[Rfam]
RNA: mir-129 microRNA precursor family
RNA sequence: UCAGGUCUUUUUGCGGUCUGGGCUUGCUGUUAACAAACCUCAACCCAGGAAGCCCUUACCCCAAAAAGCAUCUG
Numbered sequence: 001u002c003a004g005g006u007c008u009u010u011u012u013g014c015g016g017u018c019u020g021g022g023c024u025u026g027c028u029g030u031u032a033a034c035a036a037a038c039c040u041c042a043a044c045c046c047a048g049g050a051a052g053c054c055c056u057u058a059c060c061c062c063a064a065a066a067a068g069c070a071u072c073u074g
Base pairs, nucleotide, nucleotide: 007068008067009066010065011064012063013062015060016059017058020055021054022053023052025050027048028047